A member of the RNA family "U5 spliceosomal RNA" from Saccharomyces paradoxus, 121 nucleotides long. About the family: U5 RNA is a component of both types of known spliceosome. The precise function of this molecule is unknown, though it is known that the 5' loop is required for splice site selection and p220 binding, and that both the 3' stem-loop and the Sm site are important for Sm protein binding and cap methylation. The source organism's lineage runs through Eukaryota, Opisthokonta, saccharomyceta, Saccharomycetales and Saccharomyces paradoxus. On this family, see Zwieb, Nucleic Acids Res 1997: "The uRNA database". Rfam's curators put it in the seed alignment. It is annotated as a spliceosomal small nuclear RNA.
RNA sequence: AUUGCCUAUAGAACUUAUAACGAACAUGGUUCUUGCCUUUUACCAGAACCAUCCGGGUGUUGCCUCUAUAGAAACAGGUAAAGCUGUCCGUUACUGCCAGCUUGCCAUAUUUUUUGGAAAU
Numbered sequence: 001a002u003u004g005c006c007u008a009u010a011g012a013a014c015u016u017a018u019a020a021c022g023a024a025c026a027u028g029g030u031u032c033u034u035g036c037c038u039u040u041u042a043c044c045a046g047a048a049c050c051a052u053c054c055g056g057g058u059g060u061u062g063c064c065u066c067u068a069u070a071g072a073a074a075c076a077g078g079u080a081a082a083g084c085u086g087u088c089c090g091u092u093a094c095u096g097c098c099a100g101c102u103u104g105c106c107a108u109a110u111u112u113u114u115u116g117g118a119a120a121u
Stems, first nucleotide, its partner, number of pairs: 003080004007070006015062001017060001026052008102120002105117003